[Rfam]
RNA sequence: UUAACUCAAAUUUGUAUGGAGCUGGAACGUUUACCUACGUUUGCCGCUAGGGGCGCUGUUCCAACUGCAUUCUUUUUUUUA
Numbered sequence: 001u002u003a004a005c006u007c008a009a010a011u012u013u014g015u016a017u018g019g020a021g022c023u024g025g026a027a028c029g030u031u032u033a034c035c036u037a038c039g040u041u042u043g044c045c046g047c048u049a050g051g052g053g054c055g056c057u058g059u060u061c062c063a064a065c066u067g068c069a070u071u072c073u074u075u076u077u078u079u080u081a
Stems, first nucleotide, its partner, number of pairs: 008075003014072001016070001018068001020066002023063007034052003039047002

This 81-nucleotide sequence from Bombyx mori belongs to the Rfam family "mir-2807 microRNA precursor family". Pairs were carried over by alignment from the consensus structure, which was predicted with RNAalifold. A reference for the family is Liu et al. (2010), "MicroRNAs of Bombyx mori identified by Solexa sequencing", BMC Genomics.